[Rfam]
RNA: Nuclear RNase P
RNA sequence: AAUUAAAAAAAAAAAAAAGUGGGGCUACGAGCUGAGUAUACCACGUCAUUCCACCCCCUUGUCCCUUGGGAAGGGGCCCUGAUACCAGGGCCAGUAAGUGGCCCUAACAGAGCUCUCCCUGAGUCUCAGGGAGGUAAGUUCCCACCGAGUGGAGCUCCGUGCAAGGCCAGACUGGGUAGGAGAUGCUGUCGACCCCCCACCCUGGAAGGGGCCCCGCAGAUGCCUCCUAAGCAGGAGCUUGGAACAGACUCACGAUCAGAGAAGUGAGUUUUAUGGCUGAAGUGAGGUACCCCACACAGGGGCUUCAUAACCCAAUUCAGACUAUUCUCCCCCAUC
Numbered sequence: 001a002a003u004u005a006a007a008a009a010a011a012a013a014a015a016a017a018a019g020u021g022g023g024g025c026u027a028c029g030a031g032c033u034g035a036g037u038a039u040a041c042c043a044c045g046u047c048a049u050u051c052c053a054c055c056c057c058c059u060u061g062u063c064c065c066u067u068g069g070g071a072a073g074g075g076g077c078c079c080u081g082a083u084a085c086c087a088g089g090g091c092c093a094g095u096a097a098g099u100g101g102c103c104c105u106a107a108c109a110g111a112g113c114u115c116u117c118c119c120u121g122a123g124u125c126u127c128a129g130g131g132a133g134g135u136a137a138g139u140u141c142c143c144a145c146c147g148a149g150u151g152g153a154g155c156u157c158c159g160u161g162c163a164a165g166g167c168c169a170g171a172c173u174g175g176g177u178a179g180g181a182g183a184u185g186c187u188g189u190c191g192a193c194c195c196c197c198c199a200c201c202c203u204g205g206a207a208g209g210g211g212c213c214c215c216g217c218a219g220a221u222g223c224c225u226c227c228u229a230a231g232c233a234g235g236a237g238c239u240u241g242g243a244a245c246a247g248a249c250u251c252a253c254g255a256u257c258a259g260a261g262a263a264g265u266g267a268g269u270u271u272u273a274u275g276g277c278u279g280a281a282g283u284g285a286g287g288u289a290c291c292c293c294a295c296a297c298a299g300g301g302g303c304u305u306c307a308u309a310a311c312c313c314a315a316u317u318c319a320g321a322c323u324a325u326u327c328u329c330c331c332c333c334a335u336c
Stems, first nucleotide, its partner, number of pairs: 003281002006278001021066004034051004039045001079320004089257002092254001100114003104110001115133006134253002137250004154238005282308007